[Rfam]
RNA sequence: CUCUUAUUCAGAGAGGUGGAGGGACUGGCCCGAUGAAACCCAGCAACCUUUAACAAUUAUUUGUUAAAAAGGUGCUAAUUCCUGCAAAGUGUAAUAGCUUUGGCAAAUAAGAG
Numbered sequence: 001c002u003c004u005u006a007u008u009c010a011g012a013g014a015g016g017u018g019g020a021g022g023g024a025c026u027g028g029c030c031c032g033a034u035g036a037a038a039c040c041c042a043g044c045a046a047c048c049u050u051u052a053a054c055a056a057u058u059a060u061u062u063g064u065u066a067a068a069a070a071g072g073u074g075c076u077a078a079u080u081c082c083u084g085c086a087a088a089g090u091g092u093a094a095u096a097g098c099u100u101u102g103g104c105a106a107a108u109a110a111g112a113g
Stems, first nucleotide, its partner, number of pairs: 001113008013041001015040003021031003025084001027082002042076004047072002049068006080105001085102006
Dot-bracket structure: ((((((((....(.(((...(((.[.[[)))......))))((((.((((((((........))))))..))))))...(]].]((((((......))))))..)))))))))